[Rfam]
RNA sequence: CCAACGGCCCUCUUUAGGGCCACAAAUAUUCAAUAAUCCUAAUAUG
Numbered sequence: 001c002c003a004a005c006g007g008c009c010c011u012c013u014u015u016a017g018g019g020c021c022a023c024a025a026a027u028a029u030u031c032a033a034u035a036a037u038c039c040u041a042a043u044a045u046g
Stems, first nucleotide, its partner, number of pairs: 006021006